The record is a 135-nucleotide RNA sequence from Callithrix jacchus, which matches "U4atac minor spliceosomal RNA" in Rfam.
Rfam describes the family as follows. U4atac is an essential component of the minor U12-type spliceosome complex which is required for removal of the rarer class of eukaryotic introns (AT-AC, U12-type).
By type it is a spliceosomal small nuclear RNA.
RNA sequence: ACCAUCCUUUUCUUGGGGUUGUGCUACUGUCCAAUGAGCACACAGUGAGGGCAGAACUGCUAACACCUACCAAAAAGAUAAAUAAGGCCUGGUGCAGUGGCUCAUGCCUGUAAUGCCAGCACUUUGUUUGGGAGG
Numbered sequence: 001a002c003c004a005u006c007c008u009u010u011u012c013u014u015g016g017g018g019u020u021g022u023g024c025u026a027c028u029g030u031c032c033a034a035u036g037a038g039c040a041c042a043c044a045g046u047g048a049g050g051g052c053a054g055a056a057c058u059g060c061u062a063a064c065a066c067c068u069a070c071c072a073a074a075a076a077g078a079u080a081a082a083u084a085a086g087g088c089c090u091g092g093u094g095c096a097g098u099g100g101c102u103c104a105u106g107c108c109u110g111u112a113a114u115g116c117c118a119g120c121a122c123u124u125u126g127u128u129u130g131g132g133a134g135g
Base pairs, nucleotide, nucleotide: 006018007017008016009015021060022059023058027054028053029052030051031050032049038046039045089119090118091117092116093115096111099108100107101106